[Rfam]
RNA sequence: CGCUUCGUCAUUAGGGAGUAGCCGCUUCGGUUUACCGAAGAUCAGCGUCAACAUACUUGACCUACACAGGGUCAUGGCGCUGAUAGCACUUAGCCUGGCAGACUUUUGACCAUGGACCUUCGCGUUUGGCCG
Number, nucleotide and partner (000 for none) at each position: 001c000002g000003c000004u000005u000006c000007g000008u000009c000010a000011u000012u000013a000014g000015g000016g000017a000018g000019u000020a000021g000022c000023c000024g000025c000026u039027u038028c037029g000030g000031u000032u000033u000034a000035c000036c000037g028038a027039a026040g000041a084042u083043c082044a081045g080046c079047g078048u077049c076050a075051a000052c000053a000054u000055a000056c000057u000058u074059g073060a072061c071062c070063u000064a000065c000066a000067c000068a000069g000070g062071g061072u060073c059074a058075u050076g049077g048078c047079g046080c045081u044082g043083a042084u041085a000086g000087c000088a000089c000090u000091u000092a000093g000094c000095c000096u000097g000098g000099c000100a000101g000102a000103c000104u000105u000106u000107u000108g000109a000110c000111c000112a000113u000114g000115g000116a000117c000118c000119u000120u000121c000122g000123c000124g000125u000126u000127u000128g000129g000130c000131c000132g000
RNA: Manganese Mn2+ riboswitch aptamer (yybP-ykoY)